[Rfam]
RNA sequence: AGGGCGGUGAUGAGACGCGCAGGGGUACAGACCUCAGCUGAUAAUGGGAGCUGAGUGCUGGUGUCUAAAUUCAGCUCAGUAGGCAUGUGGUCGACUGACUGAAUGGCAUCAGCAUGAAACUGUCGCAAUUCCUGAGCCCU
Numbered sequence: 001a002g003g004g005c006g007g008u009g010a011u012g013a014g015a016c017g018c019g020c021a022g023g024g025g026u027a028c029a030g031a032c033c034u035c036a037g038c039u040g041a042u043a044a045u046g047g048g049a050g051c052u053g054a055g056u057g058c059u060g061g062u063g064u065c066u067a068a069a070u071u072c073a074g075c076u077c078a079g080u081a082g083g084c085a086u087g088u089g090g091u092c093g094a095c096u097g098a099c100u101g102a103a104u105g106g107c108a109u110c111a112g113c114a115u116g117a118a119a120c121u122g123u124c125g126c127a128a129u130u131c132c133u134g135a136g137c138c139c140u
Base pairs, nucleotide, nucleotide: 001140002139003138004137005136
Small nucleolar RNA SNORD94: a 140-nucleotide sequence from Silurus meridionalis. For this family Rfam cites "Purified box C/D snoRNPs are able to reproduce site-specific 2'-O-methylation of target RNA in vitro" (Galardi et al., Mol Cell Biol, 2002). Rfam links the family to the GO terms RNA processing and nucleolus. Rfam classes the family as a C/D-box small nucleolar RNA. The family's consensus secondary structure was predicted with RNAalifold. A search with the family's covariance model found it, with a score of 94 bits.